Record summary: Rfam assigns this 386-nucleotide sequence from Prevotella lacticifex to the family "Bacterial RNase P class A". By type it is a ribozyme. Taxonomically the source falls in Prevotella (Bacteria, Pseudomonadati, Bacteroidia, Prevotellaceae). Gene Ontology terms of the family: dimeric ribonuclease P complex, tRNA processing and ribonuclease P activity.

[Rfam]
RNA sequence: GCAGUGUCCCGGCUCUGCCGCUGGCGUCACACGUUGAUGCGAGAGGAAAGUCCGGGCAGCACAGGGCACUCCACUUCCGAAAAUAGAAGCUGCCGGCGACGGUAGGAAACGCAGAAGAAAACAACCGCCUUGCUUCGGCGAGGUAAGGGUGAGAAGGUGGUGUAAGAGACCACCAGCAGACGGGCGAUCGUCUGGCUGUGCAAUCUGGGGGCUGCAAGUUCAUGUAUACCAUCGGUCGAGGGCUGCCCGUCCGAGAGCUUAGGGCUCACGAUGGAGGGUAGAAUGCUGGAGCCGUGGGGCGACCUACGGAGUAGAUAAAUGGCAGGCACCGCACUUGCCGAGAGGCUCUUGCGGAACGGAACCCGGCUUAUAGGGGCUCUGCUUUC
Numbered sequence: 001g002c003a004g005u006g007u008c009c010c011g012g013c014u015c016u017g018c019c020g021c022u023g024g025c026g027u028c029a030c031a032c033g034u035u036g037a038u039g040c041g042a043g044a045g046g047a048a049a050g051u052c053c054g055g056g057c058a059g060c061a062c063a064g065g066g067c068a069c070u071c072c073a074c075u076u077c078c079g080a081a082a083a084u085a086g087a088a089g090c091u092g093c094c095g096g097c098g099a100c101g102g103u104a105g106g107a108a109a110c111g112c113a114g115a116a117g118a119a120a121a122c123a124a125c126c127g128c129c130u131u132g133c134u135u136c137g138g139c140g141a142g143g144u145a146a147g148g149g150u151g152a153g154a155a156g157g158u159g160g161u162g163u164a165a166g167a168g169a170c171c172a173c174c175a176g177c178a179g180a181c182g183g184g185c186g187a188u189c190g191u192c193u194g195g196c197u198g199u200g201c202a203a204u205c206u207g208g209g210g211g212c213u214g215c216a217a218g219u220u221c222a223u224g225u226a227u228a229c230c231a232u233c234g235g236u237c238g239a240g241g242g243c244u245g246c247c248c249g250u251c252c253g254a255g256a257g258c259u260u261a262g263g264g265c266u267c268a269c270g271a272u273g274g275a276g277g278g279u280a281g282a283a284u285g286c287u288g289g290a291g292c293c294g295u296g297g298g299g300c301g302a303c304c305u306a307c308g309g310a311g312u313a314g315a316u317a318a319a320u321g322g323c324a325g326g327c328a329c330c331g332c333a334c335u336u337g338c339c340g341a342g343a344g345g346c347u348c349u350u351g352c353g354g355a356a357c358g359g360a361a362c363c364c365g366g367c368u369u370a371u372a373g374g375g376g377c378u379c380u381g382c383u384u385u386c
Stems, first nucleotide, its partner, number of pairs: 001382004006377005011371001012327002015325005021043002024040006048369003052366005057214004069210005074089004090105001092103004106205002111201003125148002127144007156174006176196001177194007218284004229274005255267004292309007